[Rfam]
RNA sequence: UGCGGGAUUGUGUAAUGGUAGCACGACAGACUCUGACUCUGUUUGUGAGGGUUCGAGCCCUUCUCCCGCAG
Numbered sequence: 001u002g003c004g005g006g007a008u009u010g011u012g013u014a015a016u017g018g019u020a021g022c023a024c025g026a027c028a029g030a031c032u033c034u035g036a037c038u039c040u041g042u043u044u045g046u047g048a049g050g051g052u053u054c055g056a057g058c059c060c061u062u063c064u065c066c067c068g069c070a071g
Base pairs, nucleotide, nucleotide: 001070002069003068004067005066006065007064010024011023012022013021026042027041028040029039030038047063048062049061050060051059

About this RNA
This 71-nucleotide RNA sequence from Papillibacter cinnamivorans belongs to the Rfam family "tRNA". The organism belongs to Papillibacter cinnamivorans, within Bacteria. It scores 58 bits against the family's covariance model.